FMN riboswitch aptamer (RFN element): a 123-nucleotide RNA from Listeria monocytogenes. The base pairs follow the family's consensus structure, which is taken from published work.
[Rfam]
RNA sequence: GUUCAUCUUCGGGGCAGGGUGCAAUUCCCGACCGGUGGUUAAAGUCCACGAUCUGCUUUUUUAGCAGUUGACUCUGGUGUAAUUCCAGGACCGACAGUAUAGUCUGGAUGGGAGAAGAUGUUG
Numbered sequence: 001g002u003u004c005a006u007c008u009u010c011g012g013g014g015c016a017g018g019g020u021g022c023a024a025u026u027c028c029c030g031a032c033c034g035g036u037g038g039u040u041a042a043a044g045u046c047c048a049c050g051a052u053c054u055g056c057u058u059u060u061u062u063a064g065c066a067g068u069u070g071a072c073u074c075u076g077g078u079g080u081a082a083u084u085c086c087a088g089g090a091c092c093g094a095c096a097g098u099a100u101a102g103u104c105u106g107g108a109u110g111g112g113a114g115a116a117g118a119u120g121u122u123g
Stems, first nucleotide, its partner, number of pairs: 004120007017029003031103002033093002035049004044091002054067001073089005095106003